[Rfam]
RNA sequence: UCUCAGGUCCGGGCCCCUCUGGCGGUCCUUCCAGGCCGCGAUGUCGGACCCUUAGA
Numbered sequence: 001u002c003u004c005a006g007g008u009c010c011g012g013g014c015c016c017c018u019c020u021g022g023c024g025g026u027c028c029u030u031c032c033a034g035g036c037c038g039c040g041a042u043g044u045c046g047g048a049c050c051c052u053u054a055g056a
Stems, first nucleotide, its partner, number of pairs: 006050007022039006

A member of the RNA family "terC RNA" from Elstera cyanobacteriorum, 56 nucleotides long. By type it is a cis-regulatory element. Lineage of the source: Bacteria > Pseudomonadati > Pseudomonadota > Rhodospirillaceae > Elstera. The match comes from Rfam's covariance-model search (58 bits).